[Rfam]
RNA sequence: GUUCCCAGUGAUGCUGUUUUUUAACCAUGCUAAUGCUGAUUACAUGUGAUUAAUACUUUCGUUAUACUGAGGGAACU
Numbered sequence: 001g002u003u004c005c006c007a008g009u010g011a012u013g014c015u016g017u018u019u020u021u022u023a024a025c026c027a028u029g030c031u032a033a034u035g036c037u038g039a040u041u042a043c044a045u046g047u048g049a050u051u052a053a054u055a056c057u058u059u060c061g062u063u064a065u066a067c068u069g070a071g072g073g074a075a076c077u
Base pairs, nucleotide, nucleotide: 001076002075003074004073005072

A member of the RNA family "Small nucleolar RNA snoR53Y" from Cajanus cajan, 77 nucleotides long. It is annotated as a C/D-box small nucleolar RNA. Lineage of the source: Eukaryota > Spermatophyta > Gunneridae > Papilionoideae > Cajanus. Clan: snoR53 clan. The match comes from Rfam's covariance-model search (72 bits). A reference for the family is Brown et al. (2001), "Multiple snoRNA gene clusters from Arabidopsis", RNA.